[Rfam]
RNA sequence: AAUCGCGGUGACGACUCGGAAAAUUCAAGCUCAACAGACCGGAUUGCAGGUCUCUCUCUUCGGAGAUUGUUGCUUGCAUGUCGAUUACCCCGCUGAACCGAGCGAUA
Numbered sequence: 001a002a003u004c005g006c007g008g009u010g011a012c013g014a015c016u017c018g019g020a021a022a023a024u025u026c027a028a029g030c031u032c033a034a035c036a037g038a039c040c041g042g043a044u045u046g047c048a049g050g051u052c053u054c055u056c057u058c059u060u061c062g063g064a065g066a067u068u069g070u071u072g073c074u075u076g077c078a079u080g081u082c083g084a085u086u087a088c089c090c091c092g093c094u095g096a097a098c099c100g101a102g103c104g105a106u107a
Base pairs, nucleotide, nucleotide: 002106003105004104005103006102
Background: The record is a 107-nucleotide RNA sequence from Sesamum indicum, which matches "Small nucleolar RNA Z107/R87" in Rfam. Pairs were carried over by alignment from the consensus structure, which was predicted with RNAfold. The match comes from Rfam's covariance-model search (92 bits). The source organism's lineage runs through Eukaryota, Streptophytina, Tracheophyta, Mesangiospermae and Sesamum. For this family Rfam cites "Identification of 66 box C/D snoRNAs in Arabidopsis thaliana: extensive gene duplications generated multiple isoforms predicting new ribosomal RNA 2'-O-methylation sites" (Barneche et al., J Mol Biol, 2001).